[Rfam]
RNA sequence: UGAGUGGACCGCUACUGGCGUUGAGGUGGUGAACCACCGGGGAACGGUCUGCCGGGAUCCUCCGGCUCGAGCCGCGCGCCUGGGCAACCGAC
Numbered sequence: 001u002g003a004g005u006g007g008a009c010c011g012c013u014a015c016u017g018g019c020g021u022u023g024a025g026g027u028g029g030u031g032a033a034c035c036a037c038c039g040g041g042g043a044a045c046g047g048u049c050u051g052c053c054g055g056g057a058u059c060c061u062c063c064g065g066c067u068c069g070a071g072c073c074g075c076g077c078g079c080c081u082g083g084g085c086a087a088c089c090g091a092c
Stems, first nucleotide, its partner, number of pairs: 004052008015041002017080005026037004071085003
RNA: ZMP/ZTP riboswitch aptamer (pfl RNA motif)
Organism: Kribbella amoyensis